RNA sequence: ACCCUGCAGACGGAUUGAACGGCAGCCGACAGCGAGAGCCGGACAGGGU
Numbered sequence: 001a002c003c004c005u006g007c008a009g010a011c012g013g014a015u016u017g018a019a020c021g022g023c024a025g026c027c028g029a030c031a032g033c034g035a036g037a038g039c040c041g042g043a044c045a046g047g048g049u
Base pairs, nucleotide, nucleotide: 001049002048003047004046005045006044011021012020017033023036026042027041028040030038
The record is a 49-nucleotide RNA, which matches "DUF2693-FD RNA" in Rfam. The sequence is in the family's curated seed alignment. Pairs were carried over by alignment from the consensus structure, which is taken from published work. From the family's description: DUF2693-FD RNA is a non-coding RNA (ncRNA) recognised in Bacteroides by a bioinformatic analisis by Zasha Weinberg. No recognised genes.